[Rfam]
A member of the RNA family "Histone 3' UTR stem-loop" from Danio rerio, 46 nucleotides long. The source organism's lineage runs through Eukaryota, Vertebrata, Teleostomi, Cypriniphysae and Danio. The family's consensus secondary structure is taken from published work. About the family: The mRNAs of metazoan histone genes lack a poly-A tail. 3' end processing occurs at a site between a highly conserved stem-loop (modelled by this family) and a purine rich region around 20 nts downstream (the histone downstream element, or HDE). The stem-loop is bound by a 31 kDa stem-loop binding protein (SLBP - also termed the histone hairpin binding protein, or HBP). Together with U7 snRNA binding of the HDE, SLBP binding nucleate s the formation of the processing complex. The histone 3' UTR stem-loop is also involved in nucleocytoplasmic transport of the mRNA, and in stability regulation and translation efficiency in the cytoplasm. Rfam classes the family as a cis-regulatory element.
RNA sequence: UCAAAGGCUCUUUUAAGAGCCACCCACAUUUUCAUAAAAGAGGCUU
Numbered sequence: 001u002c003a004a005a006g007g008c009u010c011u012u013u014u015a016a017g018a019g020c021c022a023c024c025c026a027c028a029u030u031u032u033c034a035u036a037a038a039a040g041a042g043g044c045u046u
Stems, first nucleotide, its partner, number of pairs: 006021006